[Rfam]
RNA sequence: UCGUUUGGUCAGUUUUGCUGGUUUGCAUCCAGCUUUGUUACCGCGCUGUGCAAAUCCAUGCAAAACUGACCAAGAGA
Numbered sequence: 001u002c003g004u005u006u007g008g009u010c011a012g013u014u015u016u017g018c019u020g021g022u023u024u025g026c027a028u029c030c031a032g033c034u035u036u037g038u039u040a041c042c043g044c045g046c047u048g049u050g051c052a053a054a055u056c057c058a059u060g061c062a063a064a065a066c067u068g069a070c071c072a073a074g075a076g077a
Stems, first nucleotide, its partner, number of pairs: 004074015020057002022054007031047003
Rfam assigns this 77-nucleotide sequence from Takifugu flavidus to the family "mir-19 microRNA precursor family". Rfam links the family to the GO terms RISC complex and miRNA-mediated post-transcriptional gene silencing. The match comes from Rfam's covariance-model search (76 bits). The literature on the family includes a 2001 paper in Science by Lagos-Quintana et al., "Identification of novel genes coding for small expressed RNAs". The family is grouped with related families in Rfam's "mir-19 clan".